Rfam assigns this 64-nucleotide sequence to the family "RAGATH-18 RNA".
Rfam's curators write: Actinobacteria, Firmicutes, Fusobacteria, Thermotogae (1 example).
The family's consensus secondary structure is taken from published work.
[Rfam]
RNA sequence: UCUGUGGAGAGUUAUGCCAAACUAGAGUAGUAGAAAUACGAAAUAGAACUCACUGAAACAGAAA
Numbered sequence: 001u002c003u004g005u006g007g008a009g010a011g012u013u014a015u016g017c018c019a020a021a022c023u024a025g026a027g028u029a030g031u032a033g034a035a036a037u038a039c040g041a042a043a044u045a046g047a048a049c050u051c052a053c054u055g056a057a058a059c060a061g062a063a064a
Base pairs, nucleotide, nucleotide: 001062002061003060004059005058009051010050011049012048013047022046023045024044030039031038032037